[Rfam]
RNA sequence: CGUGUGCUCCGGGGCUCGGUGAAAGUCCGAACCGGCGGUGACAGUCCGCGACCCGGCCCACUGCUCUUGGCAGCGGUCCGGUUGACCUGGUGAAAUUCCGGGACCGACGGUGAAAGUCCGGAUGGGAGGCAGCACACG
Numbered sequence: 001c002g003u004g005u006g007c008u009c010c011g012g013g014g015c016u017c018g019g020u021g022a023a024a025g026u027c028c029g030a031a032c033c034g035g036c037g038g039u040g041a042c043a044g045u046c047c048g049c050g051a052c053c054c055g056g057c058c059c060a061c062u063g064c065u066c067u068u069g070g071c072a073g074c075g076g077u078c079c080g081g082u083u084g085a086c087c088u089g090g091u092g093a094a095a096u097u098c099c100g101g102g103a104c105c106g107a108c109g110g111u112g113a114a115a116g117u118c119c120g121g122a123u124g125g126g127a128g129g130c131a132g133c134a135c136a137c138g
Stems, first nucleotide, its partner, number of pairs: 003136006009129002017029003031117002033106002035049004044104002053081004086102005108120003

This 138-nucleotide sequence from Phytoactinopolyspora halotolerans belongs to the Rfam family "FMN riboswitch aptamer (RFN element)". Rfam's curators write: The RFN element is a highly conserved domain that is found frequently in the 5'-untranslated regions of prokaryotic mRNAs that encode for flavin mononucleotide (FMN) biosynthesis and transport proteins.